[Rfam]
RNA sequence: GGGGAACGACAGGGGAGCUCCCCGGGAGCUGAGAGUGCGGACCGCCGCAGACCCUCGAACCUGAUCCGGUUAGCACCGGUGGAGGAAGUCGGGAAUCUCGACCA
Numbered sequence: 001g002g003g004g005a006a007c008g009a010c011a012g013g014g015g016a017g018c019u020c021c022c023c024g025g026g027a028g029c030u031g032a033g034a035g036u037g038c039g040g041a042c043c044g045c046c047g048c049a050g051a052c053c054c055u056c057g058a059a060c061c062u063g064a065u066c067c068g069g070u071u072a073g074c075a076c077c078g079g080u081g082g083a084g085g086a087a088g089u090c091g092g093g094a095a096u097c098u099c100g101a102c103c104a
Stems, first nucleotide, its partner, number of pairs: 007091004011055004017029005036049005060085003066079004
About this RNA
This 104-nucleotide RNA from Cellulosimicrobium sp. CUA-896 belongs to the Rfam family "TPP riboswitch aptamer (THI element)". Gene Ontology term of the family: thiamine pyrophosphate binding. Pairs were carried over by alignment from the consensus structure, which is taken from published work. The match comes from Rfam's covariance-model search (62 bits).